[Rfam]
RNA sequence: CUCAUGGGGUCGCGAUCACCCCAUGAGGCGACAUGCUGAAGUAUCGCGUCCUCUCAUGAUCACGGACGCACUAUG
Numbered sequence: 001c002u003c004a005u006g007g008g009g010u011c012g013c014g015a016u017c018a019c020c021c022c023a024u025g026a027g028g029c030g031a032c033a034u035g036c037u038g039a040a041g042u043a044u045c046g047c048g049u050c051c052u053c054u055c056a057u058g059a060u061c062a063c064g065g066a067c068g069c070a071c072u073a074u075g
Stems, first nucleotide, its partner, number of pairs: 005023006046069006

chrB-a RNA: a 75-nucleotide RNA from Altererythrobacter sp. Root672. The source organism's lineage runs through Bacteria, Pseudomonadati, Sphingomonadales, Erythrobacteraceae and Altererythrobacter. Rfam classes the family as a cis-regulatory element. The family's consensus secondary structure is taken from published work.